A member of the RNA family "dfrA-dnaX RNA" from Parvimonas micra, 76 nucleotides long. Pairs were carried over by alignment from the consensus structure, which is taken from published work.
RNA sequence: AUGCCUUGUGAUAAAGCUGUAAUUAUUUCAUCAUAAUUACCAAAAUUUAGUUAUUAAAAAGGGAUUAUGAUAUAAU
Numbered sequence: 001a002u003g004c005c006u007u008g009u010g011a012u013a014a015a016g017c018u019g020u021a022a023u024u025a026u027u028u029c030a031u032c033a034u035a036a037u038u039a040c041c042a043a044a045a046u047u048u049a050g051u052u053a054u055u056a057a058a059a060a061g062g063g064a065u066u067a068u069g070a071u072a073u074a075a076u
Stems, first nucleotide, its partner, number of pairs: 030071008
Annotation:
A search with the family's covariance model found it, with a score of 90 bits.